[Rfam]
RNA sequence: GGCUGGUCCAAUGGUAGUGGGUUAUAACUUAGUAGUUACUAGUGUCACAAAAAUUAGUGUACAACCCCUACAGCUAAAUUUGACAGGCUUUAA
Numbered sequence: 001g002g003c004u005g006g007u008c009c010a011a012u013g014g015u016a017g018u019g020g021g022u023u024a025u026a027a028c029u030u031a032g033u034a035g036u037u038a039c040u041a042g043u044g045u046c047a048c049a050a051a052a053a054u055u056a057g058u059g060u061a062c063a064a065c066c067c068c069u070a071c072a073g074c075u076a077a078a079u080u081u082g083a084c085a086g087g088c089u090u091u092a093a
Stems, first nucleotide, its partner, number of pairs: 001089004006084003010081002015076001017071005027058002031055002